[Rfam]
RNA sequence: AGACCUUCGAAACCAAGAGUGGGUUUGGCCUGUCAAGUAAAUUAGGCGACCCAUACUUGGUUUCAAGGGUUA
Numbered sequence: 001a002g003a004c005c006u007u008c009g010a011a012a013c014c015a016a017g018a019g020u021g022g023g024u025u026u027g028g029c030c031u032g033u034c035a036a037g038u039a040a041a042u043u044a045g046g047c048g049a050c051c052c053a054u055a056c057u058u059g060g061u062u063u064c065a066a067g068g069g070u071u072a
Stems, first nucleotide, its partner, number of pairs: 002071006009064006016057002021052004028047004
RNA: mir-551 microRNA precursor family
Organism: Leptobrachium leishanense